[Rfam]
RNA sequence: ACCCCAUGAUAUAAGCCGGCGGUGUGAACAUAUUACUAGUUUACAUCGUGACUAUGAUUGGGAAAAUUAAGCCUGCUCCGAUGUGUGUAUGUUGUGUAGUGAAUUUUCCCACUUCCAAACAAAGUAAAUUUCAGAGUACA
Numbered sequence: 001a002c003c004c005c006a007u008g009a010u011a012u013a014a015g016c017c018g019g020c021g022g023u024g025u026g027a028a029c030a031u032a033u034u035a036c037u038a039g040u041u042u043a044c045a046u047c048g049u050g051a052c053u054a055u056g057a058u059u060g061g062g063a064a065a066a067u068u069a070a071g072c073c074u075g076c077u078c079c080g081a082u083g084u085g086u087g088u089a090u091g092u093u094g095u096g097u098a099g100u101g102a103a104u105u106u107u108c109c110c111a112c113u114u115c116c117a118a119a120c121a122a123a124g125u126a127a128a129u130u131u132c133a134g135a136g137u138a139c140a
Stems, first nucleotide, its partner, number of pairs: 019049008076134002080132002090121004096115001099113001

The record is a 140-nucleotide sequence from Musca domestica, which matches "Small nucleolar RNA snoR639/H1" in Rfam. Its family is annotated with nucleolus and RNA processing in the Gene Ontology. NCBI's taxonomy places the organism under Eukaryota, Opisthokonta, Pterygota, Muscini, Musca. Rfam 15.1 lists 77 matches to the family in 63 species.